[Rfam]
RNA: Mammalian CPEB3 ribozyme
Organism: Crocodylus porosus
RNA sequence: GGUCGCAUAUAUGAGGCCAUGGCAGAAGUGCUCACAGCCCUGUCAGAUUCCAGCAUGUCUGUGAAUUCUGCU
Numbered sequence: 001g002g003u004c005g006c007a008u009a010u011a012u013g014a015g016g017c018c019a020u021g022g023c024a025g026a027a028g029u030g031c032u033c034a035c036a037g038c039c040c041u042g043u044c045a046g047a048u049u050c051c052a053g054c055a056u057g058u059c060u061g062u063g064a065a066u067u068c069u070g071c072u
Stems, first nucleotide, its partner, number of pairs: 013040001015039003021072007028035002044061005